The family of this 98-nucleotide part of an RNA from Archaeoglobus fulgidus is "Archaeal large subunit ribosomal RNA". It is one of the family's seed sequences. NCBI's taxonomy places the organism under Archaea, Methanobacteriati, Methanobacteriota, Archaeoglobus, Archaeoglobus fulgidus. The base pairs follow the family's consensus structure, which is taken from published work.

[Rfam]
RNA sequence: GCAGUGGCUCGAAAGGUAAUCCCGGCAAAGGAAAGUGCUGAGAGGCGCGAGUACGAGCCGGGACAUGCCGGAGUCACUGCGUACGUUCUGAAGAACGG
Numbered sequence: 001g002c003a004g005u006g007g008c009u010c011g012a013a014a015g016g017u018a019a020u021c022c023c024g025g026c027a028a029a030g031g032a033a034a035g036u037g038c039u040g041a042g043a044g045g046c047g048c049g050a051g052u053a054c055g056a057g058c059c060g061g062g063a064c065a066u067g068c069c070g071g072a073g074u075c076a077c078u079g080c081g082u083a084c085g086u087u088c089u090g091a092a093g094a095a096c097g098g
Stems, first nucleotide, its partner, number of pairs: 001080010015069002020063007030054001035048005084097003